Shown here is a 182-nucleotide RNA sequence from Niallia circulans, a member of the family "Group II catalytic intron D1-D4-5". Pairs were carried over by alignment from the consensus structure. NCBI's taxonomy places the organism under Bacteria, Bacilli, Caryophanales, Bacillaceae, Niallia. Rfam links the family to the GO term Group II intron splicing.

[Rfam]
RNA sequence: UCUAACUGUCAUUCCAAACUAUGAAAUGAGGGAACUAACCACCCCGAAGCAUAGUCACUAAGACUCCUACAUGCGUCAACUCCCUCCGAAGGAUUUGAGGUGUGAAGCUAGGUAAAGUCGAUUGAAGUUGGUCCCAAUGCUGUUAUAUGUAAUGGUUCAACGAUAAAUCGGGUGUCUAUAAA
Dot-bracket structure: .................((((((.......((...........))....))))))((((......(((((((((.((((.(((.......))).)))).)))))....))))......(((((...(((((.((......((.......))..)).)))))....)))))))))........
Numbered sequence: 001u002c003u004a005a006c007u008g009u010c011a012u013u014c015c016a017a018a019c020u021a022u023g024a025a026a027u028g029a030g031g032g033a034a035c036u037a038a039c040c041a042c043c044c045c046g047a048a049g050c051a052u053a054g055u056c057a058c059u060a061a062g063a064c065u066c067c068u069a070c071a072u073g074c075g076u077c078a079a080c081u082c083c084c085u086c087c088g089a090a091g092g093a094u095u096u097g098a099g100g101u102g103u104g105a106a107g108c109u110a111g112g113u114a115a116a117g118u119c120g121a122u123u124g125a126a127g128u129u130g131g132u133c134c135c136a137a138u139g140c141u142g143u144u145a146u147a148u149g150u151a152a153u154g155g156u157u158c159a160a161c162g163a164u165a166a167a168u169c170g171g172g173u174g175u176c177u178a179u180a181a182a
Stems, first nucleotide, its partner, number of pairs: 018055006031045002056174004066112004070104005076098004081093003119170005127161005133155002141151002
It scores 104 bits against the family's covariance model. Group II introns are found in rRNA, tRNA and mRNA of organelles in fungi, plants and protists, and also in mRNA in bacteria. The literature on the family includes a 2001 paper in Trends Genet by Bonen and Vogel, "The ins and outs of group II introns".